A member of the RNA family "Guanidine-II riboswitch aptamer (mini-ykkC)" from Shewanella algae, 50 nucleotides long.

[Rfam]
RNA sequence: CCGCAGGGACGACCCUGCAAGCGCCUUAUCUAUUACCGGGGACGACCCCU
Numbered sequence: 001c002c003g004c005a006g007g008g009a010c011g012a013c014c015c016u017g018c019a020a021g022c023g024c025c026u027u028a029u030c031u032a033u034u035a036c037c038g039g040g041g042a043c044g045a046c047c048c049c050u
Stems, first nucleotide, its partner, number of pairs: 003018006038049004
A reference for the family is Sherlock et al. (2017), "Biochemical Validation of a Second Guanidine Riboswitch Class in Bacteria", Biochemistry. From the family's description: Simpler in structure and has fewer highly conserved nucleotide positions than the ykkC-yxkD leader. Despite this each of its two stem-loop structures directly bind free guanidine. Therefore, mini-ykkC RNA motif represents a distinct class of guanidine-sensing RNAs. Its crystal structure was also determined. The match comes from Rfam's covariance-model search (40 bits). The family's consensus secondary structure is taken from published work. NCBI's taxonomy places the organism under Bacteria, Pseudomonadota, Gammaproteobacteria, Alteromonadales, Shewanella.